[Rfam]
RNA sequence: GGUUUCCAUCGAUGCAAAUUCAAUCACCUCAAUUUUCAAUUUAAAAUGAGAAAGAAUUCCCCAUUGGUAGCAAAUAAUUUGAUUAUCCCUUAAGCAGGGGAAU
Numbered sequence: 001g002g003u004u005u006c007c008a009u010c011g012a013u014g015c016a017a018a019u020u021c022a023a024u025c026a027c028c029u030c031a032a033u034u035u036u037c038a039a040u041u042u043a044a045a046a047u048g049a050g051a052a053a054g055a056a057u058u059c060c061c062c063a064u065u066g067g068u069a070g071c072a073a074a075u076a077a078u079u080u081g082a083u084u085a086u087c088c089c090u091u092a093a094g095c096a097g098g099g100g101a102a103u
Base pairs, nucleotide, nucleotide: 009023011021012020059099060098061097063090066087067086068085069084070083
Dot-bracket structure: ........(.((.......)).)...................................(((.(..(((((............)))))..)......)))....

Rfam assigns this 103-nucleotide RNA sequence from Klainedoxa gabonensis to the family "Plastid-rps12 3UTR RNA".
The family's consensus secondary structure was predicted with LocARNA.
From the family's description: Plastid rpl20 is a non-coding RNA (ncRNA) recognised in plastids. It was found in the three prime untranslated region (3UTR) of rps12 gene, its 3UTR location sugest a role in transcript maduration.